[Rfam]
RNA sequence: CUCCCUGAGGAGCGUUGCAACGCACGGUUUGUCCGUCGCCAGGCUCAGGGACCUGAUCGCAAACCGCCGACCUUUCUGGUCGUUCGUGUUUUCUUUCAACGGCGCUCACCCAAC
Numbered sequence: 001c002u003c004c005c006u007g008a009g010g011a012g013c014g015u016u017g018c019a020a021c022g023c024a025c026g027g028u029u030u031g032u033c034c035g036u037c038g039c040c041a042g043g044c045u046c047a048g049g050g051a052c053c054u055g056a057u058c059g060c061a062a063a064c065c066g067c068c069g070a071c072c073u074u075u076c077u078g079g080u081c082g083u084u085c086g087u088g089u090u091u092u093c094u095u096u097c098a099a100c101g102g103c104g105c106u107c108a109c110c111c112a113a114c
Stems, first nucleotide, its partner, number of pairs: 002051007021038002024036004
The family of this 114-nucleotide RNA from Thiomonas delicata is "SAH (S-adenosyl-L-homocysteine) riboswitch aptamer". Rfam links the family to the GO terms regulation of gene expression and S-adenosylhomocysteine metabolic process. The family's consensus secondary structure is taken from published work. The family has 52 seed sequences and 1,354 matches in Rfam 15.1. A search with the family's covariance model found it, with a score of 58 bits.